[Rfam]
RNA sequence: UGAAGAGGAAUACAGUCUAAGUUCGCGACAUCGUGGUGCUCCUGCGCAAAGCUCGUCGCAAAAUAAAAGAACAUUUCGCAACGACUGUAUGACCCACUUCGUGUGGG
Numbered sequence: 001u002g003a004a005g006a007g008g009a010a011u012a013c014a015g016u017c018u019a020a021g022u023u024c025g026c027g028a029c030a031u032c033g034u035g036g037u038g039c040u041c042c043u044g045c046g047c048a049a050a051g052c053u054c055g056u057c058g059c060a061a062a063a064u065a066a067a068a069g070a071a072c073a074u075u076u077c078g079c080a081a082c083g084a085c086u087g088u089a090u091g092a093c094c095c096a097c098u099u100c101g102u103g104u105g106g107g
Stems, first nucleotide, its partner, number of pairs: 011089007025079004093107005
A member of the RNA family "Bacillaceae-1 RNA" from Psychrobacillus sp. FJAT-21963, 107 nucleotides long. The source organism's lineage runs through Bacteria, Bacillati, Caryophanales, Bacillaceae and Psychrobacillus. By type it is a small RNA.